[Rfam]
RNA sequence: UGGGCGGUAUCGUAACGAACUGCACCUGUAAACUCUUUUCUAUUAUAAAAAAUUAGUUCUGCCUAGAUCCGCAGCCGGACCGGGACAGAGGG
Numbered sequence: 001u002g003g004g005c006g007g008u009a010u011c012g013u014a015a016c017g018a019a020c021u022g023c024a025c026c027u028g029u030a031a032a033c034u035c036u037u038u039u040c041u042a043u044u045a046u047a048a049a050a051a052a053u054u055a056g057u058u059c060u061g062c063c064u065a066g067a068u069c070c071g072c073a074g075c076c077g078g079a080c081c082g083g084g085a086c087a088g089a090g091g092g
Base pairs, nucleotide, nucleotide: 002026003025004023005022006021007020008019010018011017059088060087061086062084063083064082066080068079069078070077

Shown here is a 92-nucleotide sequence from Mesobacillus foraminis, a member of the family "pan motif".
By type it is a cis-regulatory element.
Lineage of the source: Bacteria > Bacillati > Bacillota > Bacillaceae > Mesobacillus.
The match comes from Rfam's covariance-model search (70 bits).